[Rfam]
Shown here is a 69-nucleotide RNA from Salmonella enterica, a member of the family "int-alpA RNA". Pairs were carried over by alignment from the consensus structure, which is taken from published work. The family's RNA type in Rfam is small RNA.
RNA sequence: GCUAUGUCUAGGCUGAUCCCCGAAAACCCGUACACCUCUGCGGGCUGGCAUAGCCGUCAAAAUCAGAGG
Numbered sequence: 001g002c003u004a005u006g007u008c009u010a011g012g013c014u015g016a017u018c019c020c021c022g023a024a025a026a027c028c029c030g031u032a033c034a035c036c037u038c039u040g041c042g043g044g045c046u047g048g049c050a051u052a053g054c055c056g057u058c059a060a061a062a063u064c065a066g067a068g069g
Base pairs, nucleotide, nucleotide: 001054002053003052004051005050006049007048008047011021012020027044028043029042030041035069036068037067038066039065040064
The organism belongs to Salmonella enterica subsp. enterica serovar Tennessee, within Bacteria. Rfam's curators write: Acidobacteria (1 example), Planctomycetes (1 example), Proteobacteria. Rfam's curators put it in the seed alignment.